[Rfam]
Rfam assigns this 209-nucleotide RNA from Rhodobacterales bacterium HTCC2255 to the family "permuted transfer-messenger RNA". The family's RNA type in Rfam is non-coding RNA gene. Pairs were carried over by alignment from the consensus structure, which is taken from published work. The match comes from Rfam's covariance-model search (132 bits).
Nucleotides: 209
Base pairs, nucleotide, nucleotide: 001131002130003129004128005127013120014119015118016117025109026108029106030105031104035051036050037049038048039047052091053090054089055088056087057086058085132147133146134145135144
Number, partner (000 for none) and nucleotide at each position: 001131g002130g003129u004128a005127a006000u007000a008000a009000a010000c011000g012000c013120g014119c015118a016117u017000g018000u019000a020000a021000u022000a023000a024000g025109c026108g027000g028000a029106u030105c031104g032000g033000a034000c035051c036050c037049g038048g039047g040000g041000g042000c043000g044000g045000u046000a047039c048038c049037c050036g051035g052091c053090g054089a055088c056087u057086c058085c059000a060000c061000c062000a063000u064000a065000a066000u067000c068000c069000a070000u071000c072000a073000u074000u075000u076000g077000u078000g079000g080000a081000g082000u083000u084000u085058g086057g087056g088055g089054u090053c091052g092000a093000a094000a095000u096000a097000g098000g099000a100000u101000c102000g103000a104031c105030g106029g107000a108026c109025g110000u111000c112000u113000a114000a115000a116000g117016a118015u119014g120013u121000u122000a123000g124000c125000u126000u127005u128004u129003g130002c131001c132147c133146g134145g135144u136000g137000c138000g139000g140000u141000g142000u143000c144135g145134c146133u147132g148000u149000u150000a151000u152000c153000g154000a155000c156000c157000c158000a159000u160000u161000u162000a163000a164000g165000c166000u167000a168000g169000u170000u171000g172000c173000a174000a175000a176000u177000g178000a179000c180000a181000a182000c183000a184000a185000a186000g187000c188000a189000c190000c191000g192000a193000u194000g195000g196000c197000u198000u199000u200000g201000g202000c203000u204000g205000c206000g207000u208000a209000a